[Rfam]
RNA sequence: AUAAAGGCAUAGAAAGAGUUAGUACAUGCGUGAAAAAUCGUUCAAAGGGAAGAAGCAUCAAAGACUGGAAGUGCUUCUAACGAUCACAAAUGGAAUUUCACUCUGGAGCUGACAUCAGGACCUUGUACAAAGCAAGUAAAGGUGUUCCGGUUUAUACCGUUAUCUUAUAUCUUGAGUGGAUAUAGCCAAGAGCUAUUUCAACAAGGGUGGUACCGCGAUACAUACAGUCUCGUCCCUUUU
Numbered sequence: 001a002u003a004a005a006g007g008c009a010u011a012g013a014a015a016g017a018g019u020u021a022g023u024a025c026a027u028g029c030g031u032g033a034a035a036a037a038u039c040g041u042u043c044a045a046a047g048g049g050a051a052g053a054a055g056c057a058u059c060a061a062a063g064a065c066u067g068g069a070a071g072u073g074c075u076u077c078u079a080a081c082g083a084u085c086a087c088a089a090a091u092g093g094a095a096u097u098u099c100a101c102u103c104u105g106g107a108g109c110u111g112a113c114a115u116c117a118g119g120a121c122c123u124u125g126u127a128c129a130a131a132g133c134a135a136g137u138a139a140a141g142g143u144g145u146u147c148c149g150g151u152u153u154a155u156a157c158c159g160u161u162a163u164c165u166u167a168u169a170u171c172u173u174g175a176g177u178g179g180a181u182a183u184a185g186c187c188a189a190g191a192g193c194u195a196u197u198u199c200a201a202c203a204a205g206g207g208u209g210g211u212a213c214c215g216c217g218a219u220a221c222a223u224a225c226a227g228u229c230u231c232g233u234c235c236c237u238u239u240u
Stems, first nucleotide, its partner, number of pairs: 007109002015104004025092003030087001040081003051078008111146002115141001148159003179199002182196004204237004215233004
Shown here is a 240-nucleotide RNA sequence from Gracilibacillus kekensis, a member of the family "T-box leader". Its family is annotated with tRNA binding in the Gene Ontology. Rfam classes the family as a cis-regulatory leader. On this family, see Gerdeman et al., J Mol Biol 2003: "Solution structure of the Bacillus subtilis T-box antiterminator RNA: seven nucleotide bulge characterized by stacking and flexibility".